[Rfam]
RNA sequence: AGUUGCUCAUUCACCUUUUUAUGAUUGGCCCCGUCUAGUACGGAACAGCGCCUCAUAAGCCUCCGAAUGAUGCCUAAGAAAUGGUGCCUAUCGUCCAACCAAACCGAUAACAGACGCGCAAGCGACUUUAUCAAGCAUCGGACGACACGUGGAGUGAGGCACCGCCUA
Numbered sequence: 001a002g003u004u005g006c007u008c009a010u011u012c013a014c015c016u017u018u019u020u021a022u023g024a025u026u027g028g029c030c031c032c033g034u035c036u037a038g039u040a041c042g043g044a045a046c047a048g049c050g051c052c053u054c055a056u057a058a059g060c061c062u063c064c065g066a067a068u069g070a071u072g073c074c075u076a077a078g079a080a081a082u083g084g085u086g087c088c089u090a091u092c093g094u095c096c097a098a099c100c101a102a103a104c105c106g107a108u109a110a111c112a113g114a115c116g117c118g119c120a121a122g123c124g125a126c127u128u129u130a131u132c133a134a135g136c137a138u139c140g141g142a143c144g145a146c147a148c149g150u151g152g153a154g155u156g157a158g159g160c161a162c163c164g165c166c167u168a
Base pairs, nucleotide, nucleotide: 005073006072007070008069009068010067011066012065019058020057021056022055023054024053027052028051029050083163084162085161086160087159088158089157092144093143094142095141096140106132107131108130109129110128146156147155148154
This 168-nucleotide RNA from Serratia fonticola belongs to the Rfam family "Glm Y RNA activator of glmS mRNA".
The organism belongs to Serratia, within Bacteria.
Rfam describes the family as follows. This family consists of a number of bacterial RNA genes of around 167 bases in length. The tke1 RNA gene is present in Escherichia coli, Shigella flexneri, Yersinia pestis and Salmonella species where it is found between the yfhK and purL genes. The function of this RNA is unknown.
A search with the family's covariance model found it, with a score of 146 bits.
Pairs were carried over by alignment from the consensus structure, which is taken from published work.
By type it is a small RNA.
The literature on the family includes a 2008 paper in PLoS Biol by Urban and Vogel, "Two seemingly homologous noncoding RNAs act hierarchically to activate glmS mRNA translation".